Rfam assigns this 380-nucleotide sequence from Planococcus lenghuensis to the family "Bacterial RNase P class B".
The organism belongs to Planococcus, within Bacteria.
By type it is a ribozyme.

[Rfam]
RNA sequence: AAAUUCGGGUAACCGCUUCGGUUUUUAGGCCGGAGAGGAAAGUCCAUGCUCGCACGGACCUGGAAUGGCCGUAGUGAUCGUGCUUGGCGAAACGAUAAGCCAAGGCAGCCCAUAAGGCUGACGGCGGGUGGAACGCCUACGUCUAAGGAUAUGGCGGACACACCCUGAAAAGUGCCACAGUGACGGAGCUGUACAGGAAACUGUACAGGUGGAACGAGGUAAACCCCGCGAGUGAGAAACCCAAACUAUGGUAGGGGCACUUUCCCGAAGGAACCAAACGGAGGGAAGGACAGGCAUCAGCCUGUAGAUAGAUGGUUACCGCCCAUUGGUACGAGGUGCAAGCCGUUCGAGUACCCGGGAACAAAACAUGGCUUACAGAA
Numbered sequence: 001a002a003a004u005u006c007g008g009g010u011a012a013c014c015g016c017u018u019c020g021g022u023u024u025u026u027a028g029g030c031c032g033g034a035g036a037g038g039a040a041a042g043u044c045c046a047u048g049c050u051c052g053c054a055c056g057g058a059c060c061u062g063g064a065a066u067g068g069c070c071g072u073a074g075u076g077a078u079c080g081u082g083c084u085u086g087g088c089g090a091a092a093c094g095a096u097a098a099g100c101c102a103a104g105g106c107a108g109c110c111c112a113u114a115a116g117g118c119u120g121a122c123g124g125c126g127g128g129u130g131g132a133a134c135g136c137c138u139a140c141g142u143c144u145a146a147g148g149a150u151a152u153g154g155c156g157g158a159c160a161c162a163c164c165c166u167g168a169a170a171a172g173u174g175c176c177a178c179a180g181u182g183a184c185g186g187a188g189c190u191g192u193a194c195a196g197g198a199a200a201c202u203g204u205a206c207a208g209g210u211g212g213a214a215c216g217a218g219g220u221a222a223a224c225c226c227c228g229c230g231a232g233u234g235a236g237a238a239a240c241c242c243a244a245a246c247u248a249u250g251g252u253a254g255g256g257g258c259a260c261u262u263u264c265c266c267g268a269a270g271g272a273a274c275c276a277a278a279c280g281g282a283g284g285g286a287a288g289g290a291c292a293g294g295c296a297u298c299a300g301c302c303u304g305u306a307g308a309u310a311g312a313u314g315g316u317u318a319c320c321g322c323c324c325a326u327u328g329g330u331a332c333g334a335g336g337u338g339c340a341a342g343c344c345g346u347u348c349g350a351g352u353a354c355c356c357g358g359g360a361a362c363a364a365a366a367c368a369u370g371g372c373u374u375a376c377a378g379a380a
Stems, first nucleotide, its partner, number of pairs: 004380003007376001008320007016035006040374003044371005049236005054072004059068002078231005083104006105122001106120005123226002126165004134156004141150003172224002174220003189208008240256003260289007290305006324359001326357001328355005